This 146-nucleotide sequence from Aquarana catesbeiana belongs to the Rfam family "U12 minor spliceosomal RNA". Taxonomically the source falls in Aquarana (Eukaryota, Vertebrata, Sarcopterygii, Dipnotetrapodomorpha). It scores 75 bits against the family's covariance model.
RNA sequence: AUGCCUUAAACUAAUGAGCAAGGACAAAAACAUACAGGUGAUGCCUGGGUUUCCCACAAAAUAUCAGAUAAUUUUUGAAUGGGUACAGGUCUUCCCUUGGUUGAUCUGUUUAAUUUGCAGGAUCUUUGGGUGAUGAGAUCUAUCUA
Numbered sequence: 001a002u003g004c005c006u007u008a009a010a011c012u013a014a015u016g017a018g019c020a021a022g023g024a025c026a027a028a029a030a031c032a033u034a035c036a037g038g039u040g041a042u043g044c045c046u047g048g049g050u051u052u053c054c055c056a057c058a059a060a061a062u063a064u065c066a067g068a069u070a071a072u073u074u075u076u077g078a079a080u081g082g083g084u085a086c087a088g089g090u091c092u093u094c095c096c097u098u099g100g101u102u103g104a105u106c107u108g109u110u111u112a113a114u115u116u117g118c119a120g121g122a123u124c125u126u127u128g129g130g131u132g133a134u135g136a137g138a139u140c141u142a143u144c145u146a
Base pairs, nucleotide, nucleotide: 004023005022006021007020032050033049035047036046037045038044080146081145082144083143084142087141088140089139090138091137092136093135096130097129099127100126103123105121106120107119108118109117
Pairs were carried over by alignment from the consensus structure. Its Rfam clan is "U2 clan".